This 104-nucleotide RNA from Carnobacterium sp. 17-4 belongs to the Rfam family "NiCo (Nickel/Cobalt) riboswitch aptamer".
The literature on the family includes a 2015 paper in Mol Cell by Furukawa et al., "Bacterial riboswitches cooperatively bind Ni(2+) or Co(2+) ions and control expression of heavy metal transporters".
Pairs were carried over by alignment from the consensus structure, which is taken from published work.
The family is grouped with related families in Rfam's "NiCo_riboswitches".
RNA sequence: CUACUUAAAUCUGAACAGGCGGUGUACCUAUUGAGGUAUGUGCAGCCGGAUCACCGGUGUGUGAUAGCAGAGUAGUGCCAAAAAGGUACACCUGUGGGACAGUA
Numbered sequence: 001c002u003a004c005u006u007a008a009a010u011c012u013g014a015a016c017a018g019g020c021g022g023u024g025u026a027c028c029u030a031u032u033g034a035g036g037u038a039u040g041u042g043c044a045g046c047c048g049g050a051u052c053a054c055c056g057g058u059g060u061g062u063g064a065u066a067g068c069a070g071a072g073u074a075g076u077g078c079c080a081a082a083a084a085g086g087u088a089c090a091c092c093u094g095u096g097g098g099a100c101a102g103u104a
Base pairs, nucleotide, nucleotide: 011102012101013100016098018047019046020045022041023040024039025038026037027036050065051064052063053062054061067095068094069093070092